[Rfam]
RNA sequence: ACACGAGAGAGGAGGUGAUCCGGAAGUGAUUUCUUUUCGGAUGCGUGAGGUGACUGCGGGCUGAGGCCUGUCGUCACAUGACGGCAGGCCUCCUGCCGUACAUCCAGCAGUCACCGGCCCGCGGGCUCGUCGGCACAUCCGGCCGACCUCUCUUGCCAGCAGGAGAGAGCAGAGCCCGCGGGCUUCUGCGU
Number, nucleotide and partner (000 for none) at each position: 001a000002c000003a000004c000005g000006a000007g000008a000009g000010a000011g000012g000013a000014g000015g057016u056017g055018a000019u053020c000021c000022g000023g000024a000025a000026g000027u000028g000029a000030u000031u000032u000033c000034u000035u000036u000037u000038c000039g000040g000041a000042u000043g000044c000045g000046u000047g000048a000049g000050g000051u000052g000053a019054c000055u017056g016057c015058g000059g097060g096061c095062u000063g092064a091065g000066g089067c088068c087069u086070g000071u084072c083073g082074u000075c000076a000077c000078a000079u000080g000081a000082c073083g072084g071085c000086a069087g068088g067089c066090c000091u064092c063093c000094u000095g061096c060097c059098g000099u000100a000101c000102a000103u000104c000105c000106a000107g000108c000109a000110g000111u000112c000113a000114c000115c000116g184117g183118c182119c181120c180121g179122c178123g177124g176125g175126c174127u173128c000129g147130u146131c145132g144133g143134c142135a000136c000137a000138u000139c000140c000141g000142g134143c133144c132145g131146a130147c129148c000149u000150c000151u000152c000153u000154u000155g000156c000157c000158a000159g000160c000161a000162g000163g000164a000165g000166a000167g000168a000169g000170c000171a000172g000173a127174g126175c125176c124177c123178g122179c121180g120181g119182g118183c117184u116185u000186c000187u000188g000189c000190g000191u000